Shown here is a 417-nucleotide RNA sequence from Gordonia sihwensis, a member of the family "Bacterial RNase P class A". The match comes from Rfam's covariance-model search (259 bits). NCBI's taxonomy places the organism under Bacteria, Actinomycetota, Actinomycetes, Gordoniaceae, Gordonia sihwensis.
RNA sequence: CGAGUCGGCCGGGCGGCCGCGGCGAGGGAACCGCACGAGCGAUCGUGCAGGCCCGAGUCGAGGAAAGUCCGGACUCCACAGAAGCAGGGUGGUUGCUAACGGCAACCCGGGGUGACCCGCGGGACAGUGCCACAGAGAACAGACCGCCCGCACGCAUGGCGUGCGGGUAAGGGUGAAACGGUGCGGUAAGAGCGCACCAGCGAUGCGGGUGACCGUGUCGGCUCGGUAAACCCCACCCGGAGCAAGGCCGAAGCUCGCACCGCCGGCCGGCGUGUGCGAGUGCGCGAGUGACCGAGGACUGCUCGUCCGAGCUCGCGGGUUGGCCGCUCGAGGCACCCGGCGACGGUGUGUCCAGAUGGAUGGUCGCCACCGGCUCUCGGGCCGGUACAGGAUCCGGCUUACACGCCGGCUCGUUCG
Numbered sequence: 001c002g003a004g005u006c007g008g009c010c011g012g013g014c015g016g017c018c019g020c021g022g023c024g025a026g027g028g029a030a031c032c033g034c035a036c037g038a039g040c041g042a043u044c045g046u047g048c049a050g051g052c053c054c055g056a057g058u059c060g061a062g063g064a065a066a067g068u069c070c071g072g073a074c075u076c077c078a079c080a081g082a083a084g085c086a087g088g089g090u091g092g093u094u095g096c097u098a099a100c101g102g103c104a105a106c107c108c109g110g111g112g113u114g115a116c117c118c119g120c121g122g123g124a125c126a127g128u129g130c131c132a133c134a135g136a137g138a139a140c141a142g143a144c145c146g147c148c149c150g151c152a153c154g155c156a157u158g159g160c161g162u163g164c165g166g167g168u169a170a171g172g173g174u175g176a177a178a179c180g181g182u183g184c185g186g187u188a189a190g191a192g193c194g195c196a197c198c199a200g201c202g203a204u205g206c207g208g209g210u211g212a213c214c215g216u217g218u219c220g221g222c223u224c225g226g227u228a229a230a231c232c233c234c235a236c237c238c239g240g241a242g243c244a245a246g247g248c249c250g251a252a253g254c255u256c257g258c259a260c261c262g263c264c265g266g267c268c269g270g271c272g273u274g275u276g277c278g279a280g281u282g283c284g285c286g287a288g289u290g291a292c293c294g295a296g297g298a299c300u301g302c303u304c305g306u307c308c309g310a311g312c313u314c315g316c317g318g319g320u321u322g323g324c325c326g327c328u329c330g331a332g333g334c335a336c337c338c339g340g341c342g343a344c345g346g347u348g349u350g351u352c353c354a355g356a357u358g359g360a361u362g363g364u365c366g367c368c369a370c371c372g373g374c375u376c377u378c379g380g381g382c383c384g385g386u387a388c389a390g391g392a393u394c395c396g397g398c399u400u401a402c403a404c405g406c407c408g409g410c411u412c413g414u415u416c417g
Base pairs, nucleotide, nucleotide: 001413002412003411004410005409006408007407008406009405011402012368013367014366015365016364017363018362020060021059022058023057026054027053028052065400066399067398069397070396071395072394073393074242075241076240077239083303084302085301087238088237089236090235091234092106093105094104095103096102107121108119109118110117111116122233123232127231128230129227130226131225144172145171146168147167148166149165150164151163152162153161154160180198181197182196183195184194185193200222201220202219203218204217205216206215207214208213246325247324248323249322296308297307298306299305332352333351334350335349336348337346338345339344
The family's RNA type in Rfam is ribozyme.